[Rfam]
RNA sequence: UCUGUAAUAUCAGCUGGUAAUCCUGAGUUACUGAUUAUCUCAGGAUUUUGGUUGAUAUUAAACA
Numbered sequence: 001u002c003u004g005u006a007a008u009a010u011c012a013g014c015u016g017g018u019a020a021u022c023c024u025g026a027g028u029u030a031c032u033g034a035u036u037a038u039c040u041c042a043g044g045a046u047u048u049u050g051g052u053u054g055a056u057a058u059u060a061a062a063c064a
Stems, first nucleotide, its partner, number of pairs: 001064001003062001005060009017049001019047002022044006